The record is a 303-nucleotide RNA sequence from Lathyrus oleraceus, which matches "Plant signal recognition particle RNA" in Rfam. It is annotated as a non-coding RNA gene. The family is grouped with related families in Rfam's "SRP clan".

[Rfam]
RNA sequence: GCUGAGUUGGGUAGCUCCAACUUGUAACUCAAGCGAGGGCAUCAAGGUGGUGGAACAUGGUUGGUGCUUUACUGGUCUGGGUCUGAAGCUGCAAAAGUUGGCAUGCCCACUCCAAGUUGAGAGUUGAUCAACGGGUCCUGGGCGAAGGCUCAAAUCUCGUUGGUCCUAGACUGAGGGGCAACGCGUGAGGCUGGCUUCACAGAGCAGCGACUACUCUCGGCUCUUGACAGUGGAGGGAUUACAUGCCGCUGCACUUCUGGUUCAAAAUGUCCUGUGAGCCUAGCCACCUGAACCACCACUUUU
Dot-bracket structure: (((((((((((....))))))))....(((....))))))...((((((((((..(((((((((...(((((.((.(.(((((.(((..((..(....(((((((.((.(((((.(((((((((.((((((((((...(((((....)))))...))))))))))......((((((......(((....(((......)))....)))....)))))))))))))))..)))))))....))))))).).)).))).))))).....).)).))))).)))))))..))..)))))))))).